[Rfam]
Nucleotides: 132
Stems, first nucleotide, its partner, number of pairs: 002056007013045007022037004066129001068128003072124002084115005090108004
Number, partner (000 for none) and nucleotide at each position: 001000a002056c003055c004054u005053g006052c007051a008050u009000c010000g011000a012000a013045a014044g015043u016042g017041a018040c019039u020000u021000u022037g023036g024035u025034c026000u027000u028000g029000u030000u031000u032000g033000u034025g035024g036023c037022c038000u039019g040018g041017u042016c043015a044014u045013u046000g047000a048000u049000a050008g051007u052006g053005c054004a055003g056002g057000a058000a059000g060000a061000g062000a063000a064000u065000u066129c067000u068128u069127g070126a071000u072124a073123g074000c075000a076000u077000u078000u079000c080000c081000c082000g083000u084115g085114u086113u087112u088111g089000g090108a091107g092106g093105g094000u095000u096000a097000a098000u099000u100000c101000u102000c103000a104000u105093c106092c107091c108090u109000a110000u111088c112087a113086a114085a115084c116000c117000c118000u119000g120000a121000g122000c123073u124072u125000c126070u127069c128068a129066g130000a131000c132000a